RNA sequence: AUGGUCGGAAUGUCGACCGGCACUCUUGCGUCGGCCCGCUACGCUGACCGGGUGCGCUGCCUCACUGGCGCGCAAAGCCGACAGCCGUCGCACCCCAGGGAGCUAGUUCCAUG
Numbered sequence: 001a002u003g004g005u006c007g008g009a010a011u012g013u014c015g016a017c018c019g020g021c022a023c024u025c026u027u028g029c030g031u032c033g034g035c036c037c038g039c040u041a042c043g044c045u046g047a048c049c050g051g052g053u054g055c056g057c058u059g060c061c062u063c064a065c066u067g068g069c070g071c072g073c074a075a076a077g078c079c080g081a082c083a084g085c086c087g088u089c090g091c092a093c094c095c096c097a098g099g100g101a102g103c104u105a106g107u108u109c110c111a112u113g
Stems, first nucleotide, its partner, number of pairs: 053074004059069003077091002080089003
RNA: Streptomyces-metH RNA